The family of this 78-nucleotide RNA sequence from Scleropages formosus is "mir-92 microRNA precursor family". A search with the family's covariance model found it, with a score of 70 bits. Rfam's curators write: This family represents the microRNA precursor mir-92. Rfam links the family to the GO terms RISC complex and miRNA-mediated post-transcriptional gene silencing.
RNA sequence: CUUUCUGCGCAGGUUGGGAUGAGGAGCAAUGCUGCUUACUGGUGAGGUAUUGCACUUGUCCCGGCCUGUUGAGGACUA
Numbered sequence: 001c002u003u004u005c006u007g008c009g010c011a012g013g014u015u016g017g018g019a020u021g022a023g024g025a026g027c028a029a030u031g032c033u034g035c036u037u038a039c040u041g042g043u044g045a046g047g048u049a050u051u052g053c054a055c056u057u058g059u060c061c062c063g064g065c066c067u068g069u070u071g072a073g074g075a076c077u078a
Stems, first nucleotide, its partner, number of pairs: 004074003009069006016062005022056002026053008